Description
Shown here is a 196-nucleotide sequence from Oryza sativa, a member of the family "MIR812 microRNA precursor family". Lineage of the source: Eukaryota > Euphyllophyta > Magnoliopsida > commelinids > Oryza sativa. Rfam links the family to the GO terms RISC complex and miRNA-mediated post-transcriptional gene silencing. Rfam 15.1 lists 57,451 matches to the family in 24 species.
RNA sequence: UUUAAGUAUAAUUGUGGAUUUUUUAUCCAAUGUUUGAUCCUCCGUCUUAUCUGAAAUUUUUUAUAAUUAAUAUUUUUAUUGUUAUUAGAUGAUAAAACAUGAAUAAUACUUUAUGCGUGAUUUAUUUUUUUAUAAGUUUUUCAAGUAAGACGGACAGUCAAACGGUCUACAUAAAAACCGUACAACUACACUUAAA
Numbered sequence: 001u002u003u004a005a006g007u008a009u010a011a012u013u014g015u016g017g018a019u020u021u022u023u024u025a026u027c028c029a030a031u032g033u034u035u036g037a038u039c040c041u042c043c044g045u046c047u048u049a050u051c052u053g054a055a056a057u058u059u060u061u062u063a064u065a066a067u068u069a070a071u072a073u074u075u076u077u078a079u080u081g082u083u084a085u086u087a088g089a090u091g092a093u094a095a096a097a098c099a100u101g102a103a104u105a106a107u108a109c110u111u112u113a114u115g116c117g118u119g120a121u122u123u124a125u126u127u128u129u130u131u132a133u134a135a136g137u138u139u140u141u142c143a144a145g146u147a148a149g150a151c152g153g154a155c156a157g158u159c160a161a162a163c164g165g166u167c168u169a170c171a172u173a174a175a176a177a178c179c180g181u182a183c184a185a186c187u188a189c190a191c192u193u194a195a196a
Base pairs, nucleotide, nucleotide: 026169029166031164033162034161035160036159037158038157041154042153043152044151045150046149047148048147049146050145